Rfam assigns this 36-nucleotide RNA sequence to the family "DUF805b RNA". Clan: DUF805 clan. It is one of the family's seed sequences.
[Rfam]
RNA sequence: AAGGCGGAAACCGAAAAGCCUGCAAAAGAGUAGGGA
Numbered sequence: 001a002a003g004g005c006g007g008a009a010a011c012c013g014a015a016a017a018g019c020c021u022g023c024a025a026a027a028g029a030g031u032a033g034g035g036a
Stems, first nucleotide, its partner, number of pairs: 002021004011034002
Dot-bracket structure: .((((.....[[.....))))...........]]..